Rfam assigns this 74-nucleotide RNA from Platysternon megacephalum to the family "Mammalian CPEB3 ribozyme".
NCBI's taxonomy places the organism under Eukaryota, Eumetazoa, Sauria, Cryptodira, Platysternon.
[Rfam]
RNA sequence: CCCGGCUUCAAGGCCAUAACAGGAACGUUCAUGUCAUGAUCCCUGUCAGAUUCUCUGGAUCUGCGAAUCCUGCU
Numbered sequence: 001c002c003c004g005g006c007u008u009c010a011a012g013g014c015c016a017u018a019a020c021a022g023g024a025a026c027g028u029u030c031a032u033g034u035c036a037u038g039a040u041c042c043c044u045g046u047c048a049g050a051u052u053c054u055c056u057g058g059a060u061c062u063g064c065g066a067a068u069c070c071u072g073c074u
Stems, first nucleotide, its partner, number of pairs: 012043002015038001018074001020072005025037001027035001047063007